The record is a 275-nucleotide part of an RNA from Sulfuracidifex metallicus, which matches "Archaeal large subunit ribosomal RNA" in Rfam.
RNA sequence: AAGCGGCUGAGGGAAAGGAACUCCUAGUACGAGAGGAACAGAGUUCCGGGGCCUCUAGUCUACCGGUUGUCCGACAGGGCACUGCCGGGCAGCCACGCCCUGAGGGAUAAACACUGAAAGCAUCUAAGUGUGAAGCCCUCCCCGAAAAGAGCCGCUUUGCCGGUACCCGCAAGGGUACUGGUGGGCCUUCCCCUAGAAGAGGGGGUUGAUAGGGACGGGGUGUAAGUCCCGAGGGAAACCGAGGGAUGAGCCCGCGUCUACUAAUCGGGCUAUCC
Numbered sequence: 001a002a003g004c005g006g007c008u009g010a011g012g013g014a015a016a017g018g019a020a021c022u023c024c025u026a027g028u029a030c031g032a033g034a035g036g037a038a039c040a041g042a043g044u045u046c047c048g049g050g051g052c053c054u055c056u057a058g059u060c061u062a063c064c065g066g067u068u069g070u071c072c073g074a075c076a077g078g079g080c081a082c083u084g085c086c087g088g089g090c091a092g093c094c095a096c097g098c099c100c101u102g103a104g105g106g107a108u109a110a111a112c113a114c115u116g117a118a119a120g121c122a123u124c125u126a127a128g129u130g131u132g133a134a135g136c137c138c139u140c141c142c143c144g145a146a147a148a149g150a151g152c153c154g155c156u157u158u159g160c161c162g163g164u165a166c167c168c169g170c171a172a173g174g175g176u177a178c179u180g181g182u183g184g185g186c187c188u189u190c191c192c193c194u195a196g197a198a199g200a201g202g203g204g205g206u207u208g209a210u211a212g213g214g215a216c217g218g219g220g221u222g223u224a225a226g227u228c229c230c231g232a233g234g235g236a237a238a239c240c241g242a243g244g245g246a247u248g249a250g251c252c253c254g255c256g257u258c259u260a261c262u263a264a265u266c267g268g269g270c271u272a273u274c275c
Stems, first nucleotide, its partner, number of pairs: 001157008011143003017047007048101005056095001058093001063088005068081005104138003111131005185270004189205005210263003213259005218253003223248001226247005233240001
Clan: LSU clan.
The organism belongs to Sulfuracidifex metallicus, within Archaea.
A search with the family's covariance model found it, with a score of 2800 bits.
Rfam 15.1 lists 2,955 matches to the family in 1,139 species.